[Rfam]
RNA sequence: CUUUAGCAAGGGAAUGAAGUUCUCCCUUAGUAAUACUAAAACCGCCAGGUGGAGCGUGCCUCCCCUGAUUGCUGAUGACUUCUGCUUUUUG
Numbered sequence: 001c002u003u004u005a006g007c008a009a010g011g012g013a014a015u016g017a018a019g020u021u022c023u024c025c026c027u028u029a030g031u032a033a034u035a036c037u038a039a040a041a042c043c044g045c046c047a048g049g050u051g052g053a054g055c056g057u058g059c060c061u062c063c064c065c066u067g068a069u070u071g072c073u074g075a076u077g078a079c080u081u082c083u084g085c086u087u088u089u090u091g
Base pairs, nucleotide, nucleotide: 010026011025012024013023016082017081018080019079020078021077044072045071
Background:
Fluoride riboswitch aptamer (crcB RNA motif): a 91-nucleotide RNA sequence from Lachnospiraceae bacterium 9_1_43BFAA. NCBI's taxonomy places the organism under Bacteria, Bacillati, Bacillota, Lachnospirales, Lachnospiraceae. The match comes from Rfam's covariance-model search (37 bits). The family has 289 seed sequences and 2,293 matches in Rfam 15.1.